[Rfam]
RNA sequence: CCAAAGGCUCUUUUAAGAGCCACCAAAAUUGUCCUAAAAGAAUAUA
Number, nucleotide and partner (000 for none) at each position: 001c000002c000003a000004a000005a000006g021007g020008c019009u018010c017011u016012u000013u000014u000015a000016a011017g010018a009019g008020c007021c006022a000023c000024c000025a000026a000027a000028a000029u000030u000031g000032u000033c000034c000035u000036a000037a000038a000039a000040g000041a000042a000043u000044a000045u000046a000